[Rfam]
RNA sequence: GUGCAGCUGGAAGGGGGGCCGUUACACUGUAAGAGAGUGAGUAGCAGGUCUCACAGUGAACCGGUAAAAAUCAGGCCACUCC
Numbered sequence: 001g002u003g004c005a006g007c008u009g010g011a012a013g014g015g016g017g018g019c020c021g022u023u024a025c026a027c028u029g030u031a032a033g034a035g036a037g038u039g040a041g042u043a044g045c046a047g048g049u050c051u052c053a054c055a056g057u058g059a060a061c062c063g064g065u066a067a068a069a070a071u072c073a074g075g076c077c078a079c080u081c082c
Base pairs, nucleotide, nucleotide: 006076007075008074010072018065019064020063021062025058026057027056028055029054030053033052034051035050
A member of the RNA family "mir-128 microRNA precursor family" from Colius striatus, 82 nucleotides long.
The match comes from Rfam's covariance-model search (53 bits).
The base pairs follow the family's consensus structure, which was predicted with RNAalifold.
The literature on the family includes a 2005 paper in Genes Dev by Chen et al., "The developmental miRNA profiles of zebrafish as determined by small RNA cloning".